[Rfam]
Shown here is a 49-nucleotide RNA from Streptomyces jeddahensis, a member of the family "raiA-hairpin RNA".
RNA sequence: CACCAAGUCCGAGGCUCCCGGGGCAUCCCGGGACCUGGUGCAAAAGGGA
Numbered sequence: 001c002a003c004c005a006a007g008u009c010c011g012a013g014g015c016u017c018c019c020g021g022g023g024c025a026u027c028c029c030g031g032g033a034c035c036u037g038g039u040g041c042a043a044a045a046g047g048g049a
Stems, first nucleotide, its partner, number of pairs: 013035002016033006
Notes:
Pairs were carried over by alignment from the consensus structure, which is taken from published work. By type it is a small RNA. Lineage of the source: Bacteria > Bacillati > Actinomycetes > Streptomycetaceae > Streptomyces.